[Rfam]
RNA sequence: AUAAAGGAGCAAUAGCCACUUUCUUGUUCUAGUAAGAGCGUUGGUAUUGCUCCUUCAUUUAG
Numbered sequence: 001a002u003a004a005a006g007g008a009g010c011a012a013u014a015g016c017c018a019c020u021u022u023c024u025u026g027u028u029c030u031a032g033u034a035a036g037a038g039c040g041u042u043g044g045u046a047u048u049g050c051u052c053c054u055u056c057a058u059u060u061a062g
Base pairs, nucleotide, nucleotide: 001058002057004055005054006053007052008051009050010049011048012047013046014045016043017040019038022037023036024035025034026033
A member of the RNA family "Plastid-psbA-2 3UTR RNA" from Gossypium aridum, 62 nucleotides long. By type it is a cis-regulatory element. The match comes from Rfam's covariance-model search (58 bits). NCBI's taxonomy places the organism under Eukaryota, Viridiplantae, eudicotyledons, Malvaceae, Gossypium. Plastid psbA-2 is a non-coding RNA (ncRNA) present in plastids. It was identified in inverted repeat sequences in the 3 prime untranslate region (3UTR) of photosystem II quinone-binding protein (psbA). A reference for the family is Richter et al. (2023), "Retrograde signaling in plants: A critical review focusing on the GUN pathway and beyond", Plant Commun.